[Rfam]
Rfam assigns this 361-nucleotide part of an RNA from Candidatus Macondimonas diazotrophica to the family "Bacterial large subunit ribosomal RNA". The organism belongs to Candidatus Macondimonas, within Bacteria. It scores 2916 bits against the family's covariance model.
RNA sequence: UGAGAGAACUCGGUUGAAGGAACUAGGCAAAAUAGUACCGUAACUUCGGGAGAAGGUACGCCCCUUGUACGUGAAGAGCCUUGCGCUUGGAGCGGAAAGGGGUUGCAGUGACCAGGCCGCUGCGACUGUUUAUCAAAAACACAGCACUCUGCAAACACGAAAGUGGACGUAUAGGGUGUGACGCCUGCCCGGUGCCGGAAGGUUAAUUGAUGGGGUCAGCGAAAGCGAAGCUCUUGAUCGAAGCCCCGGUAAACGGCGGCCGUAACUAUAACGGUCCUAAGGUAGCGAAAUUCCUUGUCGGGUAAGUUCCGACCUGCACGAAUGGCGUAACGAUGGCGGCGCUGUCUCCAACCGAGACUCA
Numbered sequence: 001u002g003a004g005a006g007a008a009c010u011c012g013g014u015u016g017a018a019g020g021a022a023c024u025a026g027g028c029a030a031a032a033u034a035g036u037a038c039c040g041u042a043a044c045u046u047c048g049g050g051a052g053a054a055g056g057u058a059c060g061c062c063c064c065u066u067g068u069a070c071g072u073g074a075a076g077a078g079c080c081u082u083g084c085g086c087u088u089g090g091a092g093c094g095g096a097a098a099g100g101g102g103u104u105g106c107a108g109u110g111a112c113c114a115g116g117c118c119g120c121u122g123c124g125a126c127u128g129u130u131u132a133u134c135a136a137a138a139a140c141a142c143a144g145c146a147c148u149c150u151g152c153a154a155a156c157a158c159g160a161a162a163g164u165g166g167a168c169g170u171a172u173a174g175g176g177u178g179u180g181a182c183g184c185c186u187g188c189c190c191g192g193u194g195c196c197g198g199a200a201g202g203u204u205a206a207u208u209g210a211u212g213g214g215g216u217c218a219g220c221g222a223a224a225g226c227g228a229a230g231c232u233c234u235u236g237a238u239c240g241a242a243g244c245c246c247c248g249g250u251a252a253a254c255g256g257c258g259g260c261c262g263u264a265a266c267u268a269u270a271a272c273g274g275u276c277c278u279a280a281g282g283u284a285g286c287g288a289a290a291u292u293c294c295u296u297g298u299c300g301g302g303u304a305a306g307u308u309c310c311g312a313c314c315u316g317c318a319c320g321a322a323u324g325g326c327g328u329a330a331c332g333a334u335g336g337c338g339g340c341g342c343u344g345u346c347u348c349c350a351a352c353c354g355a356g357a358c359u360c361a
Stems, first nucleotide, its partner, number of pairs: 001361004009356008018347003035059005044049001060103006081097002084094003104108001116340007123332002127141003144179008152169001156165003182327004187257003192254002194250005201245003212234005219226002258276006277281001287314001297313006